Overview:
Shown here is a 94-nucleotide RNA from Clostridium chromiireducens, a member of the family "c-di-GMP-I riboswitch aptamer". It scores 69 bits against the family's covariance model. GEMM was predicted in a large-scale screen for bacterial structured RNA regulatory elements. The source organism's lineage runs through Bacteria, Bacillota, Eubacteriales, Clostridiaceae and Clostridium. Pairs were carried over by alignment from the consensus structure, which is taken from published work.
RNA sequence: UAGUGAAAAAGGCAAAUCAUAGGAAACUAUGAGACGCAAAGCCAAGGACCUGAACCAUAAUUGUUCUAUUCAUGGAAGGUAGCCGGUUACCACG
Numbered sequence: 001u002a003g004u005g006a007a008a009a010a011g012g013c014a015a016a017u018c019a020u021a022g023g024a025a026a027c028u029a030u031g032a033g034a035c036g037c038a039a040a041g042c043c044a045a046g047g048a049c050c051u052g053a054a055c056c057a058u059a060a061u062u063g064u065u066c067u068a069u070u071c072a073u074g075g076a077a078g079g080u081a082g083c084c085g086g087u088u089a090c091c092a093c094g
Base pairs, nucleotide, nucleotide: 012037013036017032018031019030020029021028022027040088041087042086043085046084047083048080049079050078055075056074057073058072
Dot-bracket structure: ...........((...((((((....))))))...))..((((..(((((....((((.............))))..)))..))))))......